[Rfam]
RNA sequence: ACGCAUGCUUUCCAAGGAUCCUGGCUCUACCUGUAGUCCUGGGUUCUCCAAGAGUGUGCCAGAGAAACGGGGAGUCUUUGACUGUCAAAGCUGAACCGUGCCUGAGGCAGUCACUCUACUGUCCCACACCU
Numbered sequence: 001a002c003g004c005a006u007g008c009u010u011u012c013c014a015a016g017g018a019u020c021c022u023g024g025c026u027c028u029a030c031c032u033g034u035a036g037u038c039c040u041g042g043g044u045u046c047u048c049c050a051a052g053a054g055u056g057u058g059c060c061a062g063a064g065a066a067a068c069g070g071g072g073a074g075u076c077u078u079u080g081a082c083u084g085u086c087a088a089a090g091c092u093g094a095a096c097c098g099u100g101c102c103u104g105a106g107g108c109a110g111u112c113a114c115u116c117u118a119c120u121g122u123c124c125c126a127c128a129c130c131u
Base pairs, nucleotide, nucleotide: 012042013041017038018037019036022033023032069124070123071122073120074119084111085110086104087103

About this RNA: Rfam assigns this 131-nucleotide RNA sequence from Synaphobranchus kaupii to the family "Small nucleolar RNA SNORA44". The base pairs follow the family's consensus structure, which was predicted with PFOLD. Gene Ontology terms of the family: RNA processing and nucleolus. Taxonomically the source falls in Synaphobranchus (Eukaryota, Bilateria, Elopomorpha, Synaphobranchidae). The family is grouped with related families in Rfam's "SNORA44 clan". Rfam 15.1 lists 1,056 matches to the family in 599 species. About the family: ACA44 is a member of the H/ACA class of snoRNA that guide the sites of modification of uridines to pseudouridines. The match comes from Rfam's covariance-model search (56 bits). The family's RNA type in Rfam is H/ACA-box small nucleolar RNA.